[Rfam]
RNA sequence: CACGGGACAAUCCGAGGUGAGCCUGGUCUGACACUAAUGGCAUGCUGCACCUUCUGGUAGUGCCGGAGAAUU
Numbered sequence: 001c002a003c004g005g006g007a008c009a010a011u012c013c014g015a016g017g018u019g020a021g022c023c024u025g026g027u028c029u030g031a032c033a034c035u036a037a038u039g040g041c042a043u044g045c046u047g048c049a050c051c052u053u054c055u056g057g058u059a060g061u062g063c064c065g066g067a068g069a070a071u072u
Stems, first nucleotide, its partner, number of pairs: 003065003007061002015052005
Trypanosomatid snoRNA TB9Cs1H2: a 72-nucleotide RNA sequence from Angomonas deanei. Rfam 15.1 lists 53 matches to the family in 20 species. For this family Rfam cites "A genome-wide analysis of C/D and H/ACA-like small nucleolar RNAs in Trypanosoma brucei reveals a trypanosome-specific pattern of rRNA modification" (Liang et al., RNA, 2005). The family's RNA type in Rfam is H/ACA-box small nucleolar RNA. Its family is annotated with RNA processing and nucleolus in the Gene Ontology. A search with the family's covariance model found it, with a score of 54 bits.